[Rfam]
Nucleotides: 058
Base pairs, nucleotide, nucleotide: 001058002057003056004055005054006053007052008051009050010049011048012047018044020042021041022040024038025037027035
Number, partner (000 for none) and nucleotide at each position: 001058g002057g003056g004055a005054a006053c007052a008051g009050c010049a011048g012047c013000a014000a015000c016000a017000a018044g019000c020042g021041c022040c023000u024038c025037g026000c027035u028000u029000c030000c031000u032000g033000c034000c035027g036000c037025c038024g039000c040022g041021g042020c043000c044018c045000g046000a047012g048011c049010u050009g051008c052007u053006g054005u055004u056003c057002c058001c